[Rfam]
The family of this 79-nucleotide sequence from Sinocyclocheilus grahami is "mir-30 microRNA precursor family".
On this family, see Ambros, Cell 2001: "microRNAs: tiny regulators with great potential".
Lineage of the source: Eukaryota > Opisthokonta > Teleostei > Osteoglossocephalai > Sinocyclocheilus.
Gene Ontology terms of the family: gene silencing by miRNA and RISC complex.
It scores 52 bits against the family's covariance model.
Pairs were carried over by alignment from the consensus structure, which was predicted with PFOLD.
This family consists of the mammalian microRNA (miRNA) precursor mir-30a. Animal miRNAs are transcribed as ~70nt precursors and subsequently processed by the Dicer enzyme to give a ~22nt product. In this case the mature sequence comes from both the 3' (miR-30) and 5' (mir-97-6) arms of the precursor. The extents of the hairpin precursors are not generally known and are estimated based on hairpin prediction.
RNA sequence: CUUGCAGCUGUAAAGAUUCCCGACUGGAAGCUGUAAGACAGACCAUCUGAGCUUUCAGUCCGAUGUUUGCUGUUGCUGG
Numbered sequence: 001c002u003u004g005c006a007g008c009u010g011u012a013a014a015g016a017u018u019c020c021c022g023a024c025u026g027g028a029a030g031c032u033g034u035a036a037g038a039c040a041g042a043c044c045a046u047c048u049g050a051g052c053u054u055u056c057a058g059u060c061c062g063a064u065g066u067u068u069g070c071u072g073u074u075g076c077u078g079g
Stems, first nucleotide, its partner, number of pairs: 002078001004076003008072001010070005016064003023059010